[Rfam]
A member of the RNA family "Eukaryotic small subunit ribosomal RNA" from Owenia fusiformis, 534 nucleotides of a longer RNA. The source organism's lineage runs through Eukaryota, Spiralia, Lophotrochozoa, Polychaeta and Owenia. A search with the family's covariance model found it, with a score of 1751 bits.

RNA sequence: GCAGUUAAAAAGUUCGUAGUUGGAUCUCAGGUCCAGGCUAGCGGUACGCCUCGCGGCGGUCACUGCUCGUCCUGACCUACCAGCCGAUCUUCCGUGGGUGCUCUUCAUUGAGUGUCUUCGGCGGUCGGAACGUUUACUUUGAAAAAAUUAGAGUGUUCAAAGCAGGCGAGUCGCCUGAAUAAUGGUGCAUGGAAUAAUGGAAUAGGACCUCGGUUCUAUUUUGUUGGUUUUCGGAACUCGAGGUAAUGAUUAAGAGGGACGGAGGGGGGCAUUCGUAUGGCGCCGUUAGAGGUGAAAUUCUAGGAUCGGCGCCAGACGGACUACUGCGAAAGCAUUUGCCAUUGAUGUUUUCAUUAGUCAAGAGCGAAAGUCAGAGGUUCGAAGACGAUCAGAUACCGUCCUAGUUCUGACCAUAAACGAUGCCAACUGGCGAUCCGCGGGAGUUGCUCAAAUGACUCUGCGGGCAGCCUCCGGAAAACCAAAGUUUUUGGGUUCCGGGGGAAGUAUGGUUGCAAAGCUGAAACUUAAAGGAAU
Numbered sequence: 001g002c003a004g005u006u007a008a009a010a011a012g013u014u015c016g017u018a019g020u021u022g023g024a025u026c027u028c029a030g031g032u033c034c035a036g037g038c039u040a041g042c043g044g045u046a047c048g049c050c051u052c053g054c055g056g057c058g059g060u061c062a063c064u065g066c067u068c069g070u071c072c073u074g075a076c077c078u079a080c081c082a083g084c085c086g087a088u089c090u091u092c093c094g095u096g097g098g099u100g101c102u103c104u105u106c107a108u109u110g111a112g113u114g115u116c117u118u119c120g121g122c123g124g125u126c127g128g129a130a131c132g133u134u135u136a137c138u139u140u141g142a143a144a145a146a147a148u149u150a151g152a153g154u155g156u157u158c159a160a161a162g163c164a165g166g167c168g169a170g171u172c173g174c175c176u177g178a179a180u181a182a183u184g185g186u187g188c189a190u191g192g193a194a195u196a197a198u199g200g201a202a203u204a205g206g207a208c209c210u211c212g213g214u215u216c217u218a219u220u221u222u223g224u225u226g227g228u229u230u231u232c233g234g235a236a237c238u239c240g241a242g243g244u245a246a247u248g249a250u251u252a253a254g255a256g257g258g259a260c261g262g263a264g265g266g267g268g269g270c271a272u273u274c275g276u277a278u279g280g281c282g283c284c285g286u287u288a289g290a291g292g293u294g295a296a297a298u299u300c301u302a303g304g305a306u307c308g309g310c311g312c313c314a315g316a317c318g319g320a321c322u323a324c325u326g327c328g329a330a331a332g333c334a335u336u337u338g339c340c341a342u343u344g345a346u347g348u349u350u351u352c353a354u355u356a357g358u359c360a361a362g363a364g365c366g367a368a369a370g371u372c373a374g375a376g377g378u379u380c381g382a383a384g385a386c387g388a389u390c391a392g393a394u395a396c397c398g399u400c401c402u403a404g405u406u407c408u409g410a411c412c413a414u415a416a417a418c419g420a421u422g423c424c425a426a427c428u429g430g431c432g433a434u435c436c437g438c439g440g441g442a443g444u445u446g447c448u449c450a451a452a453u454g455a456c457u458c459u460g461c462g463g464g465c466a467g468c469c470u471c472c473g474g475a476a477a478a479c480c481a482a483a484g485u486u487u488u489u490g491g492g493u494u495c496c497g498g499g500g501g502a503a504g505u506a507u508g509g510u511u512g513c514a515a516a517g518c519u520g521a522a523a524c525u526u527a528a529a530g531g532a533a534u
Stems, first nucleotide, its partner, number of pairs: 002497001004495001010494001012365004019358003256352004260347002264343001268340004274318002278314008289300003326333002370411006380404001384400004422493003425486003429469003434464008443456003473480002499526003508519004